[Rfam]
RNA sequence: AAUUGUGGUGACGAGUCUAUAAUGUUCAAGCUCAACAGACCAGAUCGCAGGUCCCUCGAUUUAACAAUCGGAGGGAUUUGUAUGUCGACAAACCCGCUGAACUGAGCAUUU
Number, nucleotide and partner (000 for none) at each position: 001a111002a110003u000004u108005g107006u106007g000008g000009u000010g000011a000012c000013g000014a000015g000016u000017c000018u000019a000020u000021a000022a000023u000024g000025u000026u000027c000028a000029a000030g000031c000032u000033c000034a000035a000036c000037a000038g000039a000040c000041c000042a000043g000044a000045u000046c000047g000048c000049a000050g000051g000052u000053c000054c000055c000056u000057c000058g000059a000060u000061u000062u000063a000064a000065c000066a000067a000068u000069c000070g000071g000072a000073g000074g000075g000076a000077u000078u000079u000080g000081u000082a000083u000084g000085u000086c000087g000088a000089c000090a000091a000092a000093c000094c000095c000096g000097c000098u000099g000100a000101a000102c000103u000104g000105a000106g006107c005108a004109u000110u002111u001

The record is a 111-nucleotide RNA from Carex littledalei, which matches "Small nucleolar RNA Z107/R87" in Rfam.
For this family Rfam cites "Identification of 66 box C/D snoRNAs in Arabidopsis thaliana: extensive gene duplications generated multiple isoforms predicting new ribosomal RNA 2'-O-methylation sites" (Barneche et al., J Mol Biol, 2001).
Pairs were carried over by alignment from the consensus structure, which was predicted with RNAfold.
The match comes from Rfam's covariance-model search (82 bits).
It is annotated as a C/D-box small nucleolar RNA.
NCBI's taxonomy places the organism under Eukaryota, Streptophyta, Magnoliopsida, Poales, Carex subgen. Euthyceras.
Rfam 15.1 lists 783 matches to the family in 221 species.